[Rfam]
Shown here is a 173-nucleotide RNA sequence from Xylophilus rhododendri, a member of the family "Burkholderia RNA 14". Pairs were carried over by alignment from the consensus structure, which was predicted with RNAfold. Rfam 15.1 lists 98 matches to the family in 91 species. It scores 100 bits against the family's covariance model. Rfam classes the family as a small RNA. Co-purified with Hfq, expression confirmed by Northern blot. Gene Ontology term of the family: protein binding. Taxonomically the source falls in Xylophilus (Bacteria, Pseudomonadati, Pseudomonadota, Betaproteobacteria).

RNA sequence: GUGGGUGUCAUCACCGUCGCCACCAGCGCGGUUCCCGUGAUCAGCGAGCUGCCCGGCCGCACCAGCGCCUACCAGGUGGCCCAGGUGCGCGCGCGGGUCGAUGGCAUCGUGCUCAGCCGCGACUUCACCGAAGGCGCCAACGUCAAGGCCGGCCAGCGGCUCUACAAGAUCGA
Number, nucleotide and partner (000 for none) at each position: 001g000002u000003g054004g053005g052006u051007g050008u047009c046010a000011u043012c000013a041014c000015c039016g038017u000018c037019g036020c000021c000022a033023c031024c030025a000026g000027c000028g000029c000030g024031g023032u000033u022034c000035c000036c019037g018038u016039g015040a000041u013042c000043a011044g000045c000046g009047a008048g000049c000050u007051g006052c005053c004054c003055g150056g149057c148058c147059g143060c142061a000062c000063c000064a000065g137066c136067g135068c134069c133070u000071a000072c130073c000074a000075g000076g092077u091078g090079g000080c000081c000082c089083a000084g000085g000086u000087g000088c000089g082090c078091g077092c076093g000094c121095g120096g000097g118098u000099c116100g000101a000102u000103g113104g112105c111106a110107u000108c000109g000110u106111g105112c104113u103114c000115a000116g099117c000118c097119g000120c095121g094122a000123c000124u000125u000126c000127a000128c000129c000130g072131a000132a000133g069134g068135c067136g066137c065138c000139a000140a000141c000142g060143u059144c000145a000146a000147g058148g057149c056150c055151g000152g000153c000154c000155a000156g000157c172158g171159g000160c168161u167162c000163u000164a000165c000166a000167a161168g160169a000170u000171c158172g157173a000